ALIL pseudoknot: a 117-nucleotide sequence. A search with the family's covariance model found it, with a score of 73 bits. A reference for the family is Mazauric et al. (2008), "Apical loop-internal loop RNA pseudoknots: a new type of stimulator of -1 translational frameshifting in bacteria", J Biol Chem. The family's consensus secondary structure is taken from published work. It is annotated as a cis-regulatory element.

[Rfam]
RNA sequence: UGCGUACUUCGCGGCGGCGGAGCUCGACCGCCCGUUCAAACGAUGAUCGCCUUGAUUGACGAAUUUCAUGGAGUCUCAGGUUUCGGGCCGAUCUGUCGGGUGCUCGGGAUCGCAUCA
Dot-bracket structure: ...............(((((.......)))))..............................................(((.......((.(((...(....)...))).)).))).